[Rfam]
RNA sequence: AUAAAAAAAGGCAUUCUUCAUAAAGAAGAAUGCCUUGCCAUGAUCUCACAUGGCAAUGGGAGAGGAGAAACCGGAGGAAGAUCUUAUGGGGAAAUGUAAGUCUUCUCCGCGG
Numbered sequence: 001a002u003a004a005a006a007a008a009a010g011g012c013a014u015u016c017u018u019c020a021u022a023a024a025g026a027a028g029a030a031u032g033c034c035u036u037g038c039c040a041u042g043a044u045c046u047c048a049c050a051u052g053g054c055a056a057u058g059g060g061a062g063a064g065g066a067g068a069a070a071c072c073g074g075a076g077g078a079a080g081a082u083c084u085u086a087u088g089g090g091g092a093a094a095u096g097u098a099a100g101u102c103u104u105c106u107c108c109g110c111g112g
Stems, first nucleotide, its partner, number of pairs: 011033009034060002037054006072109004077105004083100004
This 112-nucleotide RNA from Shouchella oshimensis belongs to the Rfam family "ylbH leader". It is annotated as a cis-regulatory leader. The match comes from Rfam's covariance-model search (90 bits). About the family: This family is a putative regulatory RNA structure that is found upstream of the ylbH gene in B. subtilis and related low GC Gram-positive bacteria. NCBI's taxonomy places the organism under Bacteria, Bacillati, Bacillota, Bacillaceae, Shouchella oshimensis.